RNA sequence: CCCAUAAGUAAUAAAAGGUCCGUUUUGGUCCCUUAACUUUAUUGAAAGUAUCGGUUUGGUCCUUUCUGUUAAUUUAAUUCAAAAAAAAGUUAAAUUUUGAUCCCUUAUCUUAUUUAAUUAGUAUUAGUUUGGUCCCUUAACUUAUUUAAUUAGUAUUAGUUUGGUCCUUAAACUUAACAUUUUUUUGAAUUAAAUUAACAUAAAGGAUCAAACCGAUACUUUAAAUAAAGUUAAGGGACCUAAACGGACCUUUUAUUACUUAUGGCA
Numbered sequence: 001c002c003c004a005u006a007a008g009u010a011a012u013a014a015a016a017g018g019u020c021c022g023u024u025u026u027g028g029u030c031c032c033u034u035a036a037c038u039u040u041a042u043u044g045a046a047a048g049u050a051u052c053g054g055u056u057u058g059g060u061c062c063u064u065u066c067u068g069u070u071a072a073u074u075u076a077a078u079u080c081a082a083a084a085a086a087a088a089g090u091u092a093a094a095u096u097u098u099g100a101u102c103c104c105u106u107a108u109c110u111u112a113u114u115u116a117a118u119u120a121g122u123a124u125u126a127g128u129u130u131g132g133u134c135c136c137u138u139a140a141c142u143u144a145u146u147u148a149a150u151u152a153g154u155a156u157u158a159g160u161u162u163g164g165u166c167c168u169u170a171a172a173c174u175u176a177a178c179a180u181u182u183u184u185u186u187g188a189a190u191u192a193a194a195u196u197a198a199c200a201u202a203a204a205g206g207a208u209c210a211a212a213c214c215g216a217u218a219c220u221u222u223a224a225a226u227a228a229a230g231u232u233a234a235g236g237g238a239c240c241u242a243a244a245c246g247g248a249c250c251u252u253u254u255a256u257u258a259c260u261u262a263u264g265g266c267a
Stems, first nucleotide, its partner, number of pairs: 002265007023244003027240003031236013045222003
Dot-bracket structure: .(((((((..............(((.(((.(((((((((((((.(((............................................................................................................................................................................))).))))))))))))).))).)))..............)))))))..
The family of this 267-nucleotide RNA from Medicago truncatula is "MIR2655 microRNA precursor family".
A search with the family's covariance model found it, with a score of 238 bits.
The base pairs follow the family's consensus structure, which was predicted with RNAalifold.
Rfam links the family to the GO terms miRNA-mediated post-transcriptional gene silencing and RISC complex.